[Rfam]
RNA sequence: CCAAGUGAUGCCUUGGCACUGGGAGAAUUCACAGGAGUUAAAAUUCACCCGUGAAUUUCCUGGUGCCUUAGCAUUACGAGG
Numbered sequence: 001c002c003a004a005g006u007g008a009u010g011c012c013u014u015g016g017c018a019c020u021g022g023g024a025g026a027a028u029u030c031a032c033a034g035g036a037g038u039u040a041a042a043a044u045u046c047a048c049c050c051g052u053g054a055a056u057u058u059c060c061u062g063g064u065g066c067c068u069u070a071g072c073a074u075u076a077c078g079a080g081g
Stems, first nucleotide, its partner, number of pairs: 005077006015067004020062003023058001025057002029054004034049001
The family of this 81-nucleotide RNA from Danaus plexippus is "mir-263 microRNA precursor family".
It scores 55 bits against the family's covariance model.
Rfam 15.1 lists 368 matches to the family in 211 species.